Rfam assigns this 67-nucleotide sequence to the family "Fluoride riboswitch aptamer (crcB RNA motif)". Rfam 15.1 lists 2,293 matches to the family in 1,982 species. Pairs were carried over by alignment from the consensus structure, which is taken from published work.
RNA sequence: UGGGAAAGAGGAAAUGGUGUCUUCCUAAUAUAAACCGCCCUAAAAAGCUGAUGGCGCCUGGUUAAUA
Dot-bracket structure: .........[[[[..((((((]]]]...........((........))....)))))).........
Numbered sequence: 001u002g003g004g005a006a007a008g009a010g011g012a013a014a015u016g017g018u019g020u021c022u023u024c025c026u027a028a029u030a031u032a033a034a035c036c037g038c039c040c041u042a043a044a045a046a047g048c049u050g051a052u053g054g055c056g057c058c059u060g061g062u063u064a065a066u067a
Stems, first nucleotide, its partner, number of pairs: 010025004016058006037048002